A member of the RNA family "PyrR binding site" from Vagococcus teuberi, 132 nucleotides long. Rfam classes the family as a cis-regulatory element. Its family is annotated with pyrimidine nucleobase transport and pyrimidine nucleobase biosynthetic process in the Gene Ontology. Rfam describes the family as follows. This family represents the PyrR binding site and terminator structure. The match comes from Rfam's covariance-model search (59 bits).

[Rfam]
RNA sequence: CAGUCCUUUAAGAGUAGUCCAGAGAGGCUAAGAAGGAGCGUGUAAUAUGUAUUGAUAAGGGUCAUUGUAUCCUUAUAUCACUAUGACUAAACACAACCCUCUUAUUCUUUGAUGGAUGAGAGGGUUUUUUGU
Numbered sequence: 001c002a003g004u005c006c007u008u009u010a011a012g013a014g015u016a017g018u019c020c021a022g023a024g025a026g027g028c029u030a031a032g033a034a035g036g037a038g039c040g041u042g043u044a045a046u047a048u049g050u051a052u053u054g055a056u057a058a059g060g061g062u063c064a065u066u067g068u069a070u071c072c073u074u075a076u077a078u079c080a081c082u083a084u085g086a087c088u089a090a091a092c093a094c095a096a097c098c099c100u101c102u103u104a105u106u107c108u109u110u111g112a113u114g115g116a117u118g119a120g121a122g123g124g125u126u127u128u129u130u131g132u
Stems, first nucleotide, its partner, number of pairs: 004037006015030005047078005054071004059066002095126013